[Rfam]
RNA sequence: AUGUAAUCACAGAACCGGUUUUCAUUUUCGAUCUGACUUAUUUUUUUCACAAACAAGUGAGAUCACUUUGAAAGCUGAUUUUGUACA
Number, nucleotide and partner (000 for none) at each position: 001a000002u000003g000004u000005a000006a000007u000008c000009a084010c083011a082012g081013a080014a079015c000016c077017g076018g075019u074020u073021u072022u071023c070024a069025u000026u000027u000028u065029c000030g064031a063032u062033c061034u060035g000036a000037c000038u000039u000040a000041u000042u000043u000044u000045u000046u000047u000048c000049a000050c000051a000052a000053a000054c000055a000056a000057g000058u000059g000060a034061g033062a032063u031064c030065a028066c000067u000068u000069u024070g023071a022072a021073a020074g019075c018076u017077g016078a000079u014080u013081u012082u011083g010084u009085a000086c000087a000